The family of this 112-nucleotide sequence from Alaudala cheleensis is "Small nucleolar RNA SNORD90". On this family, see Huttenhofer et al., EMBO J 2001: "RNomics: an experimental approach that identifies 201 candidates for novel, small, non-messenger RNAs in mouse". Rfam describes the family as follows. snoRNA HBII-295 belongs to the family of C/D snoRNAs. Its family is annotated with nucleolus and RNA processing in the Gene Ontology.
[Rfam]
RNA sequence: AAUUAACUUUUUGGUGUCUUAUGAUGAAGCUGCAUAGGGCAGAUUCUGAGUUGAGAAAUAAAAUUUCUCUCCACUGAUUCUCUCUAUAUGCCAUCUGAAGACACUAUAUGUU
Numbered sequence: 001a002a003u004u005a006a007c008u009u010u011u012u013g014g015u016g017u018c019u020u021a022u023g024a025u026g027a028a029g030c031u032g033c034a035u036a037g038g039g040c041a042g043a044u045u046c047u048g049a050g051u052u053g054a055g056a057a058a059u060a061a062a063a064u065u066u067c068u069c070u071c072c073a074c075u076g077a078u079u080c081u082c083u084c085u086a087u088a089u090g091c092c093a094u095c096u097g098a099a100g101a102c103a104c105u106a107u108a109u110g111u112u
Stems, first nucleotide, its partner, number of pairs: 012106008029094001032091004037083003042078001045077002048074001050072001053069005